[Rfam]
RNA sequence: ACCCUCCAGUUUCCCUUUCCAUCAGAUCUUGACACUGGUCUUGGUGGUCGUAAAAGAGGAAGAGUGGCCUGACACUGGCCUCACAGCGAUGCAGUUGCUGUAGAGCAGCAGGCCAAACUCAGACAUGC
Numbered sequence: 001a002c003c004c005u006c007c008a009g010u011u012u013c014c015c016u017u018u019c020c021a022u023c024a025g026a027u028c029u030u031g032a033c034a035c036u037g038g039u040c041u042u043g044g045u046g047g048u049c050g051u052a053a054a055a056g057a058g059g060a061a062g063a064g065u066g067g068c069c070u071g072a073c074a075c076u077g078g079c080c081u082c083a084c085a086g087c088g089a090u091g092c093a094g095u096u097g098c099u100g101u102a103g104a105g106c107a108g109c110a111g112g113c114c115a116a117a118c119u120c121a122g123a124c125a126u127g128c
Base pairs, nucleotide, nucleotide: 003059004058005057006056020047021045022044023043025040026039027038028037076115077114078113079112080111081110090107091106092105
RNA: Small nucleolar RNA SNORA61